[Rfam]
RNA sequence: AUCUUACUUCAGGGUCAGGUGAAAUUCCUUCUCGGUGGUAAACCCCACGAGCACAAAAGUGCUGAACUAGUUAAAUUCUAGUGGCGACAGUAUAGGCUGGAUAAAAGAAGUAAUCC
Numbered sequence: 001a002u003c004u005u006a007c008u009u010c011a012g013g014g015u016c017a018g019g020u021g022a023a024a025u026u027c028c029u030u031c032u033c034g035g036u037g038g039u040a041a042a043c044c045c046c047a048c049g050a051g052c053a054c055a056a057a058a059g060u061g062c063u064g065a066a067c068u069a070g071u072u073a074a075a076u077u078c079u080a081g082u083g084g085c086g087a088c089a090g091u092a093u094a095g096g097c098u099g100g101a102u103a104a105a106a107g108a109a110g111u112a113a114u115c116c
Base pairs, nucleotide, nucleotide: 004113005112006111007110008109009108010107017029018028019027031096032095033086034085035048036047037046038045043084044083051062052061053060066082067081068080069079070078088099089098090097